This 66-nucleotide RNA sequence belongs to the Rfam family "S15-Halobacteria ribosomal protein leader". The literature on the family includes a 2020 paper in BMC Microbiol by Eckert and Weinberg, "Discovery of 20 novel ribosomal leader candidates in bacteria and archaea". The family is grouped with related families in Rfam's "Ribosomal Protein S15 Leader clan". Rfam classes the family as a cis-regulatory leader.
RNA sequence: AUGGGAACCGCACGGCCGCAAAUCUGACUCGCCGCCGUUUCUGGCGGCUUGGGAUUGCGGAAGUGC
Numbered sequence: 001a002u003g004g005g006a007a008c009c010g011c012a013c014g015g016c017c018g019c020a021a022a023u024c025u026g027a028c029u030c031g032c033c034g035c036c037g038u039u040u041c042u043g044g045c046g047g048c049u050u051g052g053g054a055u056u057g058c059g060g061a062a063g064u065g066c
Stems, first nucleotide, its partner, number of pairs: 010066004016060006024053002031048007